[Rfam]
RNA sequence: GGGUGCAGCGGGUCGUGUGCGCUGCAGGCAGCUGGAUGGUCGGGCCGCCAUCC
Numbered sequence: 001g002g003g004u005g006c007a008g009c010g011g012g013u014c015g016u017g018u019g020c021g022c023u024g025c026a027g028g029c030a031g032c033u034g035g036a037u038g039g040u041c042g043g044g045c046c047g048c049c050a051u052c053c
Stems, first nucleotide, its partner, number of pairs: 005025006012018001034053007
About this RNA
The family of this 53-nucleotide sequence is "nhaA-I RNA". Acidobacteria, Alphaproteobacteria, Betaproteobacteria and Gammaproteobacteria, Verrucomicrobia, cand. division NC10. It is one of the family's seed sequences. The family's RNA type in Rfam is riboswitch.